RNA sequence: AGAUGAGUGAAACACCCCGUCCGCAGGGGACUGCGGACGACGCCGUGCCGGUGCCUCCCCAGUGCCGGUCCGGCCGUGCCUUCGCGCACAUCCCCGGAGCCCCUGGCUCCGGGCGUCUUCACCGAUCGGG
Numbered sequence: 001a002g003a004u005g006a007g008u009g010a011a012a013c014a015c016c017c018c019g020u021c022c023g024c025a026g027g028g029g030a031c032u033g034c035g036g037a038c039g040a041c042g043c044c045g046u047g048c049c050g051g052u053g054c055c056u057c058c059c060c061a062g063u064g065c066c067g068g069u070c071c072g073g074c075c076g077u078g079c080c081u082u083c084g085c086g087c088a089c090a091u092c093c094c095c096g097g098a099g100c101c102c103c104u105g106g107c108u109c110c111g112g113g114c115g116u117c118u119u120c121a122c123c124g125a126u127c128g129g130g
Base pairs, nucleotide, nucleotide: 004121005120006119007118009117010116018039019038020037021036022035023034024033025032026031042074043073044072045071047069049067050066051065052064053063054062076089077088078087079086093113094112095111096110097109098108099107100106122129123128
About this RNA: Shown here is a 130-nucleotide sequence from Streptomyces mashuensis, a member of the family "Streptomyces RNA 5676". The organism belongs to Streptomyces, within Bacteria. It scores 107 bits against the family's covariance model. From the family's description: Identified by deep sequencing of transcriptome at the end of exponential growth phase. By type it is a small RNA.